This 98-nucleotide RNA from Acidaminococcus sp. CAG:917 belongs to the Rfam family "Purine riboswitch aptamer". About the family: Riboswitches are metabolite binding domains within certain messenger RNAs that serve as precision sensors for their corresponding targets.
[Rfam]
RNA sequence: UAAAUUAAAGUUAAAAAGCCAAUAUAAUUAGGAAAAUACGGUUUCAAGUUUCUACCAAACACCUUAAAUGUUUUACUAUUGUGCGGUUUGAAAUUUUG
Numbered sequence: 001u002a003a004a005u006u007a008a009a010g011u012u013a014a015a016a017a018g019c020c021a022a023u024a025u026a027a028u029u030a031g032g033a034a035a036a037u038a039c040g041g042u043u044u045c046a047a048g049u050u051u052c053u054a055c056c057a058a059a060c061a062c063c064u065u066a067a068a069u070g071u072u073u074u075a076c077u078a079u080u081g082u083g084c085g086g087u088u089u090g091a092a093a094u095u096u097u098g
Base pairs, nucleotide, nucleotide: 020081021080022079023078024077028047029046031045032044033043034042057073058072059071060070061069